Shown here is a 128-nucleotide sequence from Alphaproteobacteria bacterium HT1-32, a member of the family "Ruegeria cis8 sRNA". A search with the family's covariance model found it, with a score of 75 bits. The family's consensus secondary structure was predicted with RNAfold.
RNA sequence: AUGGUCAGGAGCUUCGCGAUAUAGGGGAUCAAUGGCAGGUUGAGGAUCAGCAGCACCACGUUCCCGAUAUACAUUGAGAUGAUGACUGCCCAGAAGAUAUCCGGGUUGUCGAUCAUCAGACGGGGGCC
Numbered sequence: 001a002u003g004g005u006c007a008g009g010a011g012c013u014u015c016g017c018g019a020u021a022u023a024g025g026g027g028a029u030c031a032a033u034g035g036c037a038g039g040u041u042g043a044g045g046a047u048c049a050g051c052a053g054c055a056c057c058a059c060g061u062u063c064c065c066g067a068u069a070u071a072c073a074u075u076g077a078g079a080u081g082a083u084g085a086c087u088g089c090c091c092a093g094a095a096g097a098u099a100u101c102c103g104g105g106u107u108g109u110c111g112a113u114c115a116u117c118a119g120a121c122g123g124g125g126g127c128c
Stems, first nucleotide, its partner, number of pairs: 004017002007014002026128002029125002033122002036119001038114003043109001045107004050102001052100001057096001061093002067087001072084004